RNA sequence: CGUGUGGUGCUGUGCAGGUUCGCCUGGCAUGGAGAGCGACACGGCCUUUUAUGAGGU
Numbered sequence: 001c002g003u004g005u006g007g008u009g010c011u012g013u014g015c016a017g018g019u020u021c022g023c024c025u026g027g028c029a030u031g032g033a034g035a036g037c038g039a040c041a042c043g044g045c046c047u048u049u050u051a052u053g054a055g056g057u
Base pairs, nucleotide, nucleotide: 001043002042003041004040005039007037008036010032011031012030013029014028015027
Notes:
The family of this 57-nucleotide sequence is "L31-Gammaproteobacteria ribosomal protein leader". By type it is a cis-regulatory leader.